[Rfam]
RNA: MIR6217 microRNA precursor family
Nucleotides: 208
Stems, first nucleotide, its partner, number of pairs: 001208003005204029037172010052157002055154008065146003069142003072138001073118001074113009084103001089097001
Number, partner (000 for none) and nucleotide at each position: 001208u002207g003206g004000c005204c006203a007202u008201a009200g010199a011198a012197u013196a014195a015194c016193u017192u018191a019190u020189u021188c022187u023186g024185u025184g026183g027182c028181c029180a030179u031178u032177u033176u034000g035000a036000g037172u038171u039170a040169c041168g042167a043166u044165g045164a046163u047000u048000a049000c050000c051000a052157u053156g054000c055154u056153a057152a058151u059150u060149u061148a062147c063000g064000a065146g066145a067144u068000u069142a070141c071140a072138g073118u074113u075112a076111c077110u078109a079108u080107a081106a082105c083000a084103u085000u086000a087000u088000c089097g090000u091000a092000a093000a094000u095000a096000u097089c098000a099000c100000c101000g102000u103084g104000a105082g106081u107080u108079g109078u110077a111076g112075u113074a114000a115000c116000a117000c118073a119000a120000g121000u122000a123000u124000c125000g126000u127000a128000a129000a130000u131000g132000c133000a134000u135000a136000u137000u138072c139000a140071u141070g142069u143000u144067a145066u146065c147062g148061u149060a150059a151058a152057u153056u154055g155000a156053u157052a158000c159000a160000a161000a162000u163046a164045u165044u166043a167042u168041c169040g170039u171038a172037a173000a174000u175000c176033a177032a178031g179030g180029u181028g182027g183026c184025u185024a186023u187022a188021g189020a190019a191018u192017a193016a194015g195014u196013u197012a198011u199010u200009c201008u202007a203006u204005g205000c206003c207002c208001a